[Rfam]
RNA sequence: CUUCAGCGAACCCAGCCACAACGGCCGGUCCGCCGACCGGGCCUGUCCGUAGGUGGCGAUCAACGCCUGCGCCUC
Dot-bracket structure: ..............(((.....))).....(((....((....(..(((....)))..)....))...)))....
RNA: ASpks TB sRNA
Organism: Streptomyces platensis